[Rfam]
RNA sequence: GGAUUAAUGAUGAGAACACGUCUCUGAGGACAUUGAUCGACUCAUGAACAUGCCAAACUGAGUUCU
Numbered sequence: 001g002g003a004u005u006a007a008u009g010a011u012g013a014g015a016a017c018a019c020g021u022c023u024c025u026g027a028g029g030a031c032a033u034u035g036a037u038c039g040a041c042u043c044a045u046g047a048a049c050a051u052g053c054c055a056a057a058c059u060g061a062g063u064u065c066u
Stems, first nucleotide, its partner, number of pairs: 001066003005062001

Shown here is a 66-nucleotide RNA from Mesocricetus auratus, a member of the family "Small nucleolar RNA SNORD109A".
About the family: Humans have two copies of the SNORD109 gene, SNORD109A and SNORD109B.
Pairs were carried over by alignment from the consensus structure, which was predicted with WAR.
The organism belongs to Mesocricetus, within Eukaryota.